[Rfam]
RNA: Eukaryotic large subunit ribosomal RNA, nucleotides 1048 to 1542
RNA sequence: CCUGCCGAAGUUUCCCUCAGGAUAGCAGAAGCUUUUUGGUAGUUUUAUGGGGUAAAGCGAAUGAUUAGAGGCCUAGGGGGCGCAAUGCCCUUUACCUAUUCUCAAACUUUAAAUAUGUAAGAUGAGGUUCAUGCUUAAUUGAUGUUCCUCUUUCGAAUACACAGCUUCUAGUGGGCCAUUUUUGGUAAGCAGAACUGGCGAUGCGGGAUGAACCGAACGCAAAGUUAAAGAGCCGGAAUACACGCUCAUGAGAUACCAGAAAAGGUGUUAGUUCAUCUAGACAGCAGGACGGUGGCCAUGGAAGUCGGAAUCCGCUAAGGAGUGUGUAACAACUCACCUGCCGAAUGAACUAGCCCUGAAAAUGGAUGGCGCUCAAGCGUGUUUCUUAUACUUUGCCCAUGAGGUUAUAUGGAUGCUUCAUGGAGUAGGCAGGCGUGGAGGGUUAGUGUAGAAGGCUAAGGUGUGAACCUGGCUGGAACACCCUCUAGUGCAGAU
Numbered sequence: 001c002c003u004g005c006c007g008a009a010g011u012u013u014c015c016c017u018c019a020g021g022a023u024a025g026c027a028g029a030a031g032c033u034u035u036u037u038g039g040u041a042g043u044u045u046u047a048u049g050g051g052g053u054a055a056a057g058c059g060a061a062u063g064a065u066u067a068g069a070g071g072c073c074u075a076g077g078g079g080g081c082g083c084a085a086u087g088c089c090c091u092u093u094a095c096c097u098a099u100u101c102u103c104a105a106a107c108u109u110u111a112a113a114u115a116u117g118u119a120a121g122a123u124g125a126g127g128u129u130c131a132u133g134c135u136u137a138a139u140u141g142a143u144g145u146u147c148c149u150c151u152u153u154c155g156a157a158u159a160c161a162c163a164g165c166u167u168c169u170a171g172u173g174g175g176c177c178a179u180u181u182u183u184g185g186u187a188a189g190c191a192g193a194a195c196u197g198g199c200g201a202u203g204c205g206g207g208a209u210g211a212a213c214c215g216a217a218c219g220c221a222a223a224g225u226u227a228a229a230g231a232g233c234c235g236g237a238a239u240a241c242a243c244g245c246u247c248a249u250g251a252g253a254u255a256c257c258a259g260a261a262a263a264g265g266u267g268u269u270a271g272u273u274c275a276u277c278u279a280g281a282c283a284g285c286a287g288g289a290c291g292g293u294g295g296c297c298a299u300g301g302a303a304g305u306c307g308g309a310a311u312c313c314g315c316u317a318a319g320g321a322g323u324g325u326g327u328a329a330c331a332a333c334u335c336a337c338c339u340g341c342c343g344a345a346u347g348a349a350c351u352a353g354c355c356c357u358g359a360a361a362a363u364g365g366a367u368g369g370c371g372c373u374c375a376a377g378c379g380u381g382u383u384u385c386u387u388a389u390a391c392u393u394u395g396c397c398c399a400u401g402a403g404g405u406u407a408u409a410u411g412g413a414u415g416c417u418u419c420a421u422g423g424a425g426u427a428g429g430c431a432g433g434c435g436u437g438g439a440g441g442g443u444u445a446g447u448g449u450a451g452a453a454g455g456c457u458a459a460g461g462u463g464u465g466a467a468c469c470u471g472g473c474u475g476g477a478a479c480a481c482c483c484u485c486u487a488g489u490g491c492a493g494a495u
Base pairs, nucleotide, nucleotide: 001433002432003431004430005429006428011024013022014021015020027169028168029167030166031165032164033163043122044121045120046119047118048117049116055110056108057107062104063103064102067099069097070096071095074094075093076092077091078090079089081087124150125149126148127147130144131143132142175199176198177197178196180194181193182192183191184190204215205214206213219396220395221394222393223392225390229386230385231384238383240382243379244378245377263357264356265355267354268353269352270351271350272349273348274347275346276345284341285340286339287338288337290314291313292312296308297307315319320335324333325332397423398422399421400420401419402418403417404416405415434490436487437486438485439484440483441482442481443480446479447478454474455473460469461468462467